[Rfam]
RNA: S15-Flavobacteria ribosomal protein leader
RNA sequence: UAUCUUUGCCGCUUGACCGAAAAUCGGCCAUAUACAUAAAAAUCAUUUAAAAUAAUAUUGGCAUG
Numbered sequence: 001u002a003u004c005u006u007u008g009c010c011g012c013u014u015g016a017c018c019g020a021a022a023a024u025c026g027g028c029c030a031u032a033u034a035c036a037u038a039a040a041a042a043u044c045a046u047u048u049a050a051a052a053u054a055a056u057a058u059u060g061g062c063a064u065g
Stems, first nucleotide, its partner, number of pairs: 014030002017027003